Overview: Shown here is a 182-nucleotide RNA sequence from Kyrpidia spormannii, a member of the family "Lysine riboswitch aptamer". Gene Ontology term of the family: lysine biosynthetic process. It scores 112 bits against the family's covariance model. Taxonomically the source falls in Kyrpidia (Bacteria, Bacillota, Caryophanales, Alicyclobacillaceae).
Nucleotides: 182
Stems, first nucleotide, its partner, number of pairs: 007176005016082009032067002034064006086118010097107001119145002122142008147167007
Number, partner (000 for none) and nucleotide at each position: 001000a002000a003000c004000g005000g006000g007176g008175g009174u010173a011172g012000a013000g014000g015000c016082g017081c018080g019079a020078g021077g022076u023075c024074c025000a026000a027000g028000a029000g030000u031000a032067c033066c034064g035063g036062c037061g038060g039059g040000g041000a042000g043000g044000c045000g046000a047000a048000g049000g050000g051000g052000c053000c054000g055000a056000c057000g058000a059039u060038c061037c062036g063035c064034c065000c066033g067032g068000g069000a070000a071000a072000g073000g074024g075023g076022a077021u078020u079019u080018c081017g082016c083000c084000g085000a086118a087117g088116c089115g090114u091113c092112g093111g094110c095109g096000g097107c098000g099000g100000c101000c102000c103000u104000c105000a106000a107097g108000g109095c110094g111093c112092c113091g114090g115089c116088g117087c118086u119145g120144g121000g122142c123141c124140c125139g126138g127137a128136u129135c130000g131000a132000a133000a134000a135129g136128g137127u138126c139125c140124g141123g142122g143000a144120c145119u146000g147167u148166c149165a150164c151163a152162a153161g154000g155000g156000g157000u158000u159000c160000c161153c162152u163151u164150g165149u166148g167147g168000a169000g170000u171000g172011c173010u174009a175008c176007u177000g178000c179000g180000u181000g182000g